RNA: Wolbachia sRNA 46
Organism: Pararge aegeria
RNA sequence: GGGGCCAAGAAAGAUGUCAUCCCAGUGCUCAGACACUGGGAUCCAGAAAAUUUAAUUGUAAACAAGCAUACUAGACAAUUGUAUAAUGAAAACUGGAUUCCAGUGUCCGCUACUCGAAUGACAAGUACUCCAAGUU
Dot-bracket structure: .........(....((((((.(.((((..(.(((((((((((((((..............................................))))))))))))))).).)))).).)))))).....).......